Rfam assigns this 88-nucleotide sequence from Cloeon dipterum to the family "mir-276 microRNA precursor family". The family's consensus secondary structure was predicted with RNAalifold. Rfam 15.1 lists 200 matches to the family in 170 species. Gene Ontology terms of the family: RISC complex and miRNA-mediated post-transcriptional gene silencing. A reference for the family is Li et al. (2009), "Direct sequencing and expression analysis of a large number of miRNAs in Aedes aegypti and a multi-species survey of novel mosquito miRNAs", BMC Genomics. The match comes from Rfam's covariance-model search (82 bits).
[Rfam]
RNA sequence: GCAAGUUUUAGCCACUAGCGAGGUAUAGAGUUCCUACGGAGUUUUUUCCAAAUGUAGGAACUUCAUACCGUGCUCUUGGAGAAACUUU
Numbered sequence: 001g002c003a004a005g006u007u008u009u010a011g012c013c014a015c016u017a018g019c020g021a022g023g024u025a026u027a028g029a030g031u032u033c034c035u036a037c038g039g040a041g042u043u044u045u046u047u048c049c050a051a052a053u054g055u056a057g058g059a060a061c062u063u064c065a066u067a068c069c070g071u072g073c074u075c076u077u078g079g080a081g082a083a084a085c086u087u088u
Stems, first nucleotide, its partner, number of pairs: 012079003017074004022069005028063010